RNA: Bacterial RNase P class B
Organism: Priestia veravalensis
RNA sequence: GCGUUUGGGUAAUUGCUGCAUCUCUUUGAAGAUGUAGAGGAAAGUCCAUGCUCGCACAGGCUGAGAUGCUUGUAGUGUUCGUGCCUAGUGAAGUCAUAAGCUAGGGUAGCGUAACUGCUAACGGCGGGGAAAAAGCCUAAGUCUUAGGAUAUGGUUUGAAUACUCUGAAAGUGCCACAGUGACGAAGUCUCAUUAGAAAUAAUGAGAGUGGAACGAGGUAAACCCCACGAGCGAGAAACCCAAAUAAUGGUAGGGGAACUUUCCCAAAGGAAUUGAACAGAGGGAAGGACAAAAUGCACGCAUUUUGUAGAUAGAUAAUUACCACCGGAGUACGAGGUAGCUAGCCGCUUGUAGUACAAAGGAACAAAACAUGGCUUACAGAA
Numbered sequence: 001g002c003g004u005u006u007g008g009g010u011a012a013u014u015g016c017u018g019c020a021u022c023u024c025u026u027u028g029a030a031g032a033u034g035u036a037g038a039g040g041a042a043a044g045u046c047c048a049u050g051c052u053c054g055c056a057c058a059g060g061c062u063g064a065g066a067u068g069c070u071u072g073u074a075g076u077g078u079u080c081g082u083g084c085c086u087a088g089u090g091a092a093g094u095c096a097u098a099a100g101c102u103a104g105g106g107u108a109g110c111g112u113a114a115c116u117g118c119u120a121a122c123g124g125c126g127g128g129g130a131a132a133a134a135g136c137c138u139a140a141g142u143c144u145u146a147g148g149a150u151a152u153g154g155u156u157u158g159a160a161u162a163c164u165c166u167g168a169a170a171g172u173g174c175c176a177c178a179g180u181g182a183c184g185a186a187g188u189c190u191c192a193u194u195a196g197a198a199a200u201a202a203u204g205a206g207a208g209u210g211g212a213a214c215g216a217g218g219u220a221a222a223c224c225c226c227a228c229g230a231g232c233g234a235g236a237a238a239c240c241c242a243a244a245u246a247a248u249g250g251u252a253g254g255g256g257a258a259c260u261u262u263c264c265c266a267a268a269g270g271a272a273u274u275g276a277a278c279a280g281a282g283g284g285a286a287g288g289a290c291a292a293a294a295u296g297c298a299c300g301c302a303u304u305u306u307g308u309a310g311a312u313a314g315a316u317a318a319u320u321a322c323c324a325c326c327g328g329a330g331u332a333c334g335a336g337g338u339a340g341c342u343a344g345c346c347g348c349u350u351g352u353a354g355u356a357c358a359a360a361g362g363a364a365c366a367a368a369a370c371a372u373g374g375c376u377u378a379c380a381g382a383a
Stems, first nucleotide, its partner, number of pairs: 004383003007379001008323007016037006042377003046374005051235005056073006079230005084105006106122001107120005123225002126165003134156004141150003171223002173219003188207008239255003259288007289308008325362002330357004